[Rfam]
RNA sequence: AACGAAACGCAACGCCCCAGCAGGAGGCUCCCCAUGUUUAUCGAUGAAGUGGUGAUCGCCGGUGUCGUCACCGUCGGCUUGAUGGUUGCCUUCUGCGCAGGUAUCGGCAUUUUCAUUUGGAAGGACUCGCACAAGCACAGCUGAGCCUUCUCGCAGAGCACGCAAGGCACCUCGGGCGACUUCGGUCGCCCUUUUUUUCG
Numbered sequence: 001a002a003c004g005a006a007a008c009g010c011a012a013c014g015c016c017c018c019a020g021c022a023g024g025a026g027g028c029u030c031c032c033c034a035u036g037u038u039u040a041u042c043g044a045u046g047a048a049g050u051g052g053u054g055a056u057c058g059c060c061g062g063u064g065u066c067g068u069c070a071c072c073g074u075c076g077g078c079u080u081g082a083u084g085g086u087u088g089c090c091u092u093c094u095g096c097g098c099a100g101g102u103a104u105c106g107g108c109a110u111u112u113u114c115a116u117u118u119g120g121a122a123g124g125a126c127u128c129g130c131a132c133a134a135g136c137a138c139a140g141c142u143g144a145g146c147c148u149u150c151u152c153g154c155a156g157a158g159c160a161c162g163c164a165a166g167g168c169a170c171c172u173c174g175g176g177c178g179a180c181u182u183c184g185g186u187c188g189c190c191c192u193u194u195u196u197u198u199c200g
Base pairs, nucleotide, nucleotide: 009098010097049059050058051057076087077086078085079084158168159167161166174191175190176189177188178187179186180185
RNA: PhrS